[Rfam]
RNA sequence: GACAUACGGAAAGAGCUUCGGUCGGCCUUGCAGCUACUUGAUACCCGCGUUUGGCUAUGGAGCUGGGUAGCAAUGCAACCAUGACGGUUAUGACUUAUUCAUGGCAUCAUCGUCCGGUUUCGGCCAAGUGAGAAGAGUCCUUUGACCUGGGACGGUCUCGACCUUACUGAAACAGAGUUUCGCGCCGAAUGAACGAGUGAAACAGCAUUCAGGAACCCGAUUAAAGAUCGGUGUUUUAAAGCUUCGUGCUUUGCCAGGAUCUGCGAAUCGCUCAAUCUGCAGGGCUCAAAAAUCAGUCUAGGACGUGGCCCAUCAGGUCCAAAAACUCAUCACCUAUUGUAGAUAAGGGCAGGCCAUGGGGUUGGUAGCCCUGGUCGCGCUUUCUCCAGAAAUGGCGAGAGCGCGGCCCUCCACAUCCUGGGG
Numbered sequence: 001g002a003c004a005u006a007c008g009g010a011a012a013g014a015g016c017u018u019c020g021g022u023c024g025g026c027c028u029u030g031c032a033g034c035u036a037c038u039u040g041a042u043a044c045c046c047g048c049g050u051u052u053g054g055c056u057a058u059g060g061a062g063c064u065g066g067g068u069a070g071c072a073a074u075g076c077a078a079c080c081a082u083g084a085c086g087g088u089u090a091u092g093a094c095u096u097a098u099u100c101a102u103g104g105c106a107u108c109a110u111c112g113u114c115c116g117g118u119u120u121c122g123g124c125c126a127a128g129u130g131a132g133a134a135g136a137g138u139c140c141u142u143u144g145a146c147c148u149g150g151g152a153c154g155g156u157c158u159c160g161a162c163c164u165u166a167c168u169g170a171a172a173c174a175g176a177g178u179u180u181c182g183c184g185c186c187g188a189a190u191g192a193a194c195g196a197g198u199g200a201a202a203c204a205g206c207a208u209u210c211a212g213g214a215a216c217c218c219g220a221u222u223a224a225a226g227a228u229c230g231g232u233g234u235u236u237u238a239a240a241g242c243u244u245c246g247u248g249c250u251u252u253g254c255c256a257g258g259a260u261c262u263g264c265g266a267a268u269c270g271c272u273c274a275a276u277c278u279g280c281a282g283g284g285c286u287c288a289a290a291a292a293u294c295a296g297u298c299u300a301g302g303a304c305g306u307g308g309c310c311c312a313u314c315a316g317g318u319c320c321a322a323a324a325a326c327u328c329a330u331c332a333c334c335u336a337u338u339g340u341a342g343a344u345a346a347g348g349g350c351a352g353g354c355c356a357u358g359g360g361g362u363u364g365g366u367a368g369c370c371c372u373g374g375u376c377g378c379g380c381u382u383u384c385u386c387c388a389g390a391a392a393u394g395g396c397g398a399g400a401g402c403g404c405g406g407c408c409c410u411c412c413a414c415a416u417c418c419u420g421g422g423g
Stems, first nucleotide, its partner, number of pairs: 214235003217231003239251004
The family of this 423-nucleotide part of an RNA from Lomentospora prolificans is "Ascomycota telomerase RNA". Lineage of the source: Eukaryota > Opisthokonta > saccharomyceta > Microascales > Lomentospora. Its family is annotated with telomerase catalytic core complex, telomere maintenance via telomerase and telomerase activity in the Gene Ontology. A reference for the family is Qi et al. (2013), "The common ancestral core of vertebrate and fungal telomerase RNAs", Nucleic Acids Res. Its Rfam clan is "Telomerase clan". Rfam classes the family as a non-coding RNA gene. It scores 204 bits against the family's covariance model. The base pairs follow the family's consensus structure.